SAM-Chlorobi RNA: a 91-nucleotide RNA sequence from a Chlorobiales bacterium.
The match comes from Rfam's covariance-model search (43 bits).
By type it is a cis-regulatory element.
Lineage of the source: Bacteria > Pseudomonadati > Chlorobiota > Chlorobiia > Chlorobiales.

RNA sequence: UGACAUCCCCAUUAUCUAUGGACACGGUGUUAGCAGCAGUGAAGCCCCAACGGUUUCAAGGCUGACCAAGCGGAAACGCUUUCGUGUCCAU
Numbered sequence: 001u002g003a004c005a006u007c008c009c010c011a012u013u014a015u016c017u018a019u020g021g022a023c024a025c026g027g028u029g030u031u032a033g034c035a036g037c038a039g040u041g042a043a044g045c046c047c048c049a050a051c052g053g054u055u056u057c058a059a060g061g062c063u064g065a066c067c068a069a070g071c072g073g074a075a076a077c078g079c080u081u082u083c084g085u086g087u088c089c090a091u
Base pairs, nucleotide, nucleotide: 001032002031003030004029005028006027007026009021010020011019012018034064035063036062037061040058041057042056043055044054045053046052